[Rfam]
RNA sequence: AUUUUUGCGCAGUAGCGAUUCAGUAAUCAAUGAUCGAUAAGAGAGGUGCUAUAUUACUAGUUGAAAACUAUAACCAAUACCUCGCCAUGAUGACGUAAAAUAUUCUCGGCUAGGUAAUUUCUGAUUAUUUCGAGAGAAU
Dot-bracket structure: ...................(.(((.(((.....((.....))..)))))))................................(((..(.(((.(........).))).)..))).............(((....))).
RNA: U4 spliceosomal RNA
Organism: Caligus rogercresseyi